[Rfam]
RNA sequence: GCGUGGGUUUGGAUUUAUGGCAGGCCCGUCCUCCUGGGCCUUUCAUAGUGUCCCACGUCAAAGCAAACUAUAGCCCUGAACCAUUCUCUGCCUUUUCCCUAUAGCCGCAGGCACUGAAGUGGGUUACACAGAA
Numbered sequence: 001g002c003g004u005g006g007g008u009u010u011g012g013a014u015u016u017a018u019g020g021c022a023g024g025c026c027c028g029u030c031c032u033c034c035u036g037g038g039c040c041u042u043u044c045a046u047a048g049u050g051u052c053c054c055a056c057g058u059c060a061a062a063g064c065a066a067a068c069u070a071u072a073g074c075c076c077u078g079a080a081c082c083a084u085u086c087u088c089u090g091c092c093u094u095u096u097c098c099c100u101a102u103a104g105c106c107g108c109a110g111g112c113a114c115u116g117a118a119g120u121g122g123g124u125u126a127c128a129c130a131g132a133a
Stems, first nucleotide, its partner, number of pairs: 001058004005053004015048006022041003025037002071126006082116002087111002089107002092104001

The family of this 133-nucleotide RNA sequence from Jaculus jaculus is "Small nucleolar RNA SNORA42/SNORA80 family". By type it is an H/ACA-box small nucleolar RNA. For this family Rfam cites "A computational screen for mammalian pseudouridylation guide H/ACA RNAs" (Schattner et al., RNA, 2006).